[Rfam]
RNA: mir-548 microRNA precursor family
Organism: Callithrix jacchus
RNA sequence: UGUUAGGUUGGUGCAAAAGUAAUUGUGGUUUUUGCCAUUGCUUUUGAUGGCAAACACCGUAAUUACUUUUGCACCAACCUAACA
Numbered sequence: 001u002g003u004u005a006g007g008u009u010g011g012u013g014c015a016a017a018a019g020u021a022a023u024u025g026u027g028g029u030u031u032u033u034g035c036c037a038u039u040g041c042u043u044u045u046g047a048u049g050g051c052a053a054a055c056a057c058c059g060u061a062a063u064u065a066c067u068u069u070u071g072c073a074c075c076a077a078c079c080u081a082a083c084a
Stems, first nucleotide, its partner, number of pairs: 001084029031054010